[Rfam]
RNA sequence: CUGGAGGACUAAGAAAGUGGAGCCAGUGGCACUAUAUUGACUCCACUGAUACUAUCCUCCUAAAUUAAAUGGUGGAUGAACAAGGCCUGCCUGUGAGAUAAAGUCAGGUCCUACUCGAUCUUACCAACAAUG
Dot-bracket structure: ..((((((.((......(((((.(.(((....)))...).)))))....))...))))))..........(((((((....(.((((((...............)))))).).....))).)))).......

Small Cajal body specific RNA 15: a 132-nucleotide RNA sequence from Pachycephala philippinensis.
The family is grouped with related families in Rfam's "SCARNA4 clan".
scaRNAs are a specific class of small nuclear RNAs which localise to the Cajal bodies and guide the modification of RNA polymerase II transcribed spliceosomal RNAs U1, U2, U4, U5 and U12. ACA45 belongs to the H/ACA box class of guide RNAs as it has the predicted hairpin-hinge-hairpin-tail structure, the conserved H/ACA-box motifs and is found associated with GAR1.
NCBI's taxonomy places the organism under Eukaryota, Eumetazoa, Archosauria, Theropoda, Pachycephala.
The base pairs follow the family's consensus structure, which was predicted with RNAfold.